[Rfam]
RNA sequence: GGUCAGAUUCAGCGCAAGCAGUUACUCCGAUCCAUUGGACUUCAGAUACCUAUAUUGAGGUUUGAGACCUGAGGGUGCUUUCUGAUCCUUUU
Numbered sequence: 001g002g003u004c005a006g007a008u009u010c011a012g013c014g015c016a017a018g019c020a021g022u023u024a025c026u027c028c029g030a031u032c033c034a035u036u037g038g039a040c041u042u043c044a045g046a047u048a049c050c051u052a053u054a055u056u057g058a059g060g061u062u063u064g065a066g067a068c069c070u071g072a073g074g075g076u077g078c079u080u081u082c083u084g085a086u087c088c089u090u091u092u
Base pairs, nucleotide, nucleotide: 001087002086003085004084005083006082012076013075015073019071020070021069026066028064029063030062